[Rfam]
RNA sequence: AUGAUGGCGUGAUUCCAGACUCGUAUAAUGCCAAGAAUAUGGCUUGGCAGUCUCUACGAGGCAACCGUAAAUUGCCUGGCUACGAGGUCGGAGGUAAAUUCG
Numbered sequence: 001a002u003g004a005u006g007g008c009g010u011g012a013u014u015c016c017a018g019a020c021u022c023g024u025a026u027a028a029u030g031c032c033a034a035g036a037a038u039a040u041g042g043c044u045u046g047g048c049a050g051u052c053u054c055u056a057c058g059a060g061g062c063a064a065c066c067g068u069a070a071a072u073u074g075c076c077u078g079g080c081u082a083c084g085a086g087g088u089c090g091g092a093g094g095u096a097a098a099u100u101c102g
Base pairs, nucleotide, nucleotide: 018088020086021085022084023083024082025081029049030048031047032046033045034044035043059077060076061075062074063073064072
RNA: Purine riboswitch aptamer
Organism: Alicyclobacillus hesperidum